[Rfam]
RNA: Interferon gamma 5' UTR regulatory element
RNA sequence: CACUGCUCAGAUCAUCACCAGAUCCGCUAUUAGAAGAGAGGUUAACUAAGUCCUCUGGACCUGGUUAACGUAACAUAGGAGCCACUGAUUCCAACUCCUUUGGCCUAGCUCUCUAAGACCAUGAAGUCUACAGGUUAUAUCUUGGCUUUCCAGGUCUGCAUCAUU
Numbered sequence: 001c002a003c004u005g006c007u008c009a010g011a012u013c014a015u016c017a018c019c020a021g022a023u024c025c026g027c028u029a030u031u032a033g034a035a036g037a038g039a040g041g042u043u044a045a046c047u048a049a050g051u052c053c054u055c056u057g058g059a060c061c062u063g064g065u066u067a068a069c070g071u072a073a074c075a076u077a078g079g080a081g082c083c084a085c086u087g088a089u090u091c092c093a094a095c096u097c098c099u100u101u102g103g104c105c106u107a108g109c110u111c112u113c114u115a116a117g118a119c120c121a122u123g124a125a126g127u128c129u130a131c132a133g134g135u136u137a138u139a140u141c142u143u144g145g146c147u148u149u150c151c152a153g154g155u156c157u158g159c160a161u162c163a164u165u
Stems, first nucleotide, its partner, number of pairs: 010066005015116001017114001020112003026104004032099002035096002040090005050082002054079004117165002121161003126140002129137002144155001146153002